[Rfam]
RNA sequence: GCGAGACAUGUGGUCCGGCGGCCGAGUGUGACCGAUAAACUGGUCUCGGACGACGCCGGGCGCAGCUCCCGGCCGUCCACCCAUGAUCAGCCAGCAGCCGCUGCAACCACAGGGAG
Numbered sequence: 001g002c003g004a005g006a007c008a009u010g011u012g013g014u015c016c017g018g019c020g021g022c023c024g025a026g027u028g029u030g031a032c033c034g035a036u037a038a039a040c041u042g043g044u045c046u047c048g049g050a051c052g053a054c055g056c057c058g059g060g061c062g063c064a065g066c067u068c069c070c071g072g073c074c075g076u077c078c079a080c081c082c083a084u085g086a087u088c089a090g091c092c093a094g095c096a097g098c099c100g101c102u103g104c105a106a107c108c109a110c111a112g113g114g115a116g
Stems, first nucleotide, its partner, number of pairs: 048078005056072005092103004
The family of this 116-nucleotide sequence is "Streptomyces-metK RNA".
The base pairs follow the family's consensus structure, which is taken from published work.